This 72-nucleotide sequence from Micractinium conductrix belongs to the Rfam family "tRNA". The base pairs follow the family's consensus structure, which is taken from published work.

RNA sequence: GCCGGUAUAGUGUAGUGGUUAUCACUCCAGACUCUGAAUCUGGCAACCGCAGUUCGAAUCUGCGUACUGGCU
Numbered sequence: 001g002c003c004g005g006u007a008u009a010g011u012g013u014a015g016u017g018g019u020u021a022u023c024a025c026u027c028c029a030g031a032c033u034c035u036g037a038a039u040c041u042g043g044c045a046a047c048c049g050c051a052g053u054u055c056g057a058a059u060c061u062g063c064g065u066a067c068u069g070g071c072u
Stems, first nucleotide, its partner, number of pairs: 001071007010025003027043005048064005
Dot-bracket structure: (((((((..(((..........))).(((((.......)))))....(((((.......)))))))))))).
Rfam links the family to the GO term triplet codon-amino acid adaptor activity.